RNA sequence: AGUUAUAAAUAGUUAUGUGUAUAAAUUGAUUGGUCUAGUUCAUCAUAUAAUUACAUGGGGAACGUAGAACCAUCAUGCUGAAGAGGACCUUAAUUGGUCCUAGAACGGCCUGAGGUAGAGGGGGUUUUAGUCGGUAGGUCCGAGGACUUCUUCCUCGGGAAUCCGACACUACCCAGUCGUACAGACGGCUGGGUGUCUUUUGAAGAUUUCCCCUCUUCCACGAAA
Dot-bracket structure: ...............................(((((................................................)))))....((.((...................(((((((.....(((((....((((((((.....))))))))...))))).(.(((((..............))))))..............)))..)))).)).)).